Shown here is a 101-nucleotide RNA sequence from Bisbaumannia pacifica, a member of the family "TPP riboswitch aptamer (THI element)".

RNA sequence: CACUGUCGCCAGGGGUGUCCCGCGGGACUGAGAGGGCCGAGUGCCGACCCUGGAACCUGAUCCGGUUCAUGCCGGCGGAGGAAGUGCGACAUGCCCUACCU
Numbered sequence: 001c002a003c004u005g006u007c008g009c010c011a012g013g014g015g016u017g018u019c020c021c022g023c024g025g026g027a028c029u030g031a032g033a034g035g036g037c038c039g040a041g042u043g044c045c046g047a048c049c050c051u052g053g054a055a056c057c058u059g060a061u062c063c064g065g066u067u068c069a070u071g072c073c074g075g076c077g078g079a080g081g082a083a084g085u086g087c088g089a090c091a092u093g094c095c096c097u098a099c100c101u
Base pairs, nucleotide, nucleotide: 006089007088008087009086011051012050013049014048017028018027019026020025035045036044037043056081057080058079062075063074064073065072

NCBI's taxonomy places the organism under Bacteria, Pseudomonadota, Gammaproteobacteria, Oceanospirillales, Bisbaumannia.
It scores 62 bits against the family's covariance model.
The family's consensus secondary structure is taken from published work.
Its family is annotated with thiamine pyrophosphate binding in the Gene Ontology.